[Rfam]
RNA: c-di-AMP riboswitch aptamer (ydaO/yuaA leader)
Organism: Pelovirga terrestris
RNA sequence: CUGGACCUGGUGCCGACAAACAGGUGCGGGGGAACCAUUUUUUGGGGCGAACGUUCCAACCAUCUUUUUGCCGUGAGAAAACAGGACGCUUUCAAGUCCGAGCCGGUCAGCUAACCUCGUCGGCAUUUGAAAGGGCAGGC
Numbered sequence: 001c002u003g004g005a006c007c008u009g010g011u012g013c014c015g016a017c018a019a020a021c022a023g024g025u026g027c028g029g030g031g032g033a034a035c036c037a038u039u040u041u042u043u044g045g046g047g048c049g050a051a052c053g054u055u056c057c058a059a060c061c062a063u064c065u066u067u068u069u070g071c072c073g074u075g076a077g078a079a080a081a082c083a084g085g086a087c088g089c090u091u092u093c094a095a096g097u098c099c100g101a102g103c104c105g106g107u108c109a110g111c112u113a114a115c116c117u118c119g120u121c122g123g124c125a126u127u128u129g130a131a132a133g134g135g136c137a138g139g140c
Stems, first nucleotide, its partner, number of pairs: 001122001005025005026120006036044002046104002054080002084099004